[Rfam]
RNA sequence: UGCUGCUGUCCUUCAUUCCACCGGAUCCUGUGUAAAUAUAAUCCAGAUUCCCAGUGGCAUGAAGUGCAUUAG
Numbered sequence: 001u002g003c004u005g006c007u008g009u010c011c012u013u014c015a016u017u018c019c020a021c022c023g024g025a026u027c028c029u030g031u032g033u034a035a036a037u038a039u040a041a042u043c044c045a046g047a048u049u050c051c052c053a054g055u056g057g058c059a060u061g062a063a064g065u066g067c068a069u070u071a072g
Stems, first nucleotide, its partner, number of pairs: 011064006019056003023051003028046003
RNA: mir-205 microRNA precursor family